[Rfam]
RNA sequence: GAAAAAUGUGCUCUAUACAAUUGUCAAGAUGAAACAUUGUAUGGAGC
Numbered sequence: 001g002a003a004a005a006a007u008g009u010g011c012u013c014u015a016u017a018c019a020a021u022u023g024u025c026a027a028g029a030u031g032a033a034a035c036a037u038u039g040u041a042u043g044g045a046g047c
Base pairs, nucleotide, nucleotide: 011046012045013044014043015042017040018039019038
Record summary: The family of this 47-nucleotide RNA is "uup RNA". Rfam classes the family as a cis-regulatory element. Pairs were carried over by alignment from the consensus structure, which is taken from published work.